The record is an 84-nucleotide RNA sequence from Streptomyces actinomycinicus, which matches "nrdJ RNA" in Rfam. The match comes from Rfam's covariance-model search (72 bits). The family's consensus secondary structure is taken from published work.
RNA sequence: ACCUGUUGCGGGUGGCAGCUGAGGGUGCCCGCGACGCAAGACAGAACAUGUGCCCCUGGGAACAUCGGGGCACUUCAGGGCGUU
Number, nucleotide and partner (000 for none) at each position: 001a000002c000003c000004u036005g035006u034007u033008g032009c031010g030011g029012g028013u027014g026015g000016c024017a000018g000019c000020u000021g000022a000023g000024g016025g000026u014027g013028c012029c011030c010031g009032c008033g007034a006035c005036g004037c000038a000039a000040g000041a000042c000043a000044g000045a000046a000047c000048a000049u000050g073051u072052g071053c070054c069055c068056c000057u067058g066059g000060g000061a000062a000063c000064a000065u000066c058067g057068g055069g054070g053071c052072a051073c050074u000075u000076c000077a000078g000079g000080g000081c000082g000083u000084u000